[Rfam]
RNA sequence: GUUCCCAAUGAUUUUUUUUUUACUAUGCUAAUGUUGAGAAUUGAUGAUUAAUAAGUUUAAUUUAUAAUGCUGAGGGAAUU
Number, nucleotide and partner (000 for none) at each position: 001g079002u078003u077004c076005c075006c000007a000008a000009u000010g000011a000012u000013u000014u000015u000016u000017u000018u000019u000020u000021u000022a000023c000024u000025a000026u000027g000028c000029u000030a000031a000032u000033g000034u000035u000036g000037a000038g000039a000040a000041u000042u000043g000044a000045u000046g000047a000048u000049u000050a000051a000052u000053a000054a000055g000056u000057u000058u000059a000060a000061u000062u000063u000064a000065u000066a000067a000068u000069g000070c000071u000072g000073a000074g000075g005076g004077a003078a002079u001080u000

Small nucleolar RNA snoR53Y: an 80-nucleotide RNA sequence from Medicago truncatula.
Its Rfam clan is "snoR53 clan".
The literature on the family includes a 2001 paper in RNA by Brown et al., "Multiple snoRNA gene clusters from Arabidopsis".
It is annotated as a C/D-box small nucleolar RNA.